[Rfam]
RNA sequence: CGCUUUGGCAGUGUGGUUAGCUGGUUGUGUGGCCAAUUGACAAAUCACAGCCACUAUCUUCACUGCCGCCGCGA
Numbered sequence: 001c002g003c004u005u006u007g008g009c010a011g012u013g014u015g016g017u018u019a020g021c022u023g024g025u026u027g028u029g030u031g032g033c034c035a036a037u038u039g040a041c042a043a044a045u046c047a048c049a050g051c052c053a054c055u056a057u058c059u060u061c062a063c064u065g066c067c068g069c070c071g072c073g074a
Stems, first nucleotide, its partner, number of pairs: 001073003007066001010064004015059002018056003022053008
The family of this 74-nucleotide sequence from Drosophila virilis is "mir-34 microRNA precursor family". The family's consensus secondary structure was predicted with RNAalifold. The organism belongs to Drosophila, within Eukaryota. Gene Ontology terms of the family: RISC complex and miRNA-mediated post-transcriptional gene silencing. Rfam describes the family as follows. Human mir-34a was discovered computationally and later experimentally verified. The mature sequence is excised from the 5' arm of the hairpin. The family is grouped with related families in Rfam's "mir-34 clan".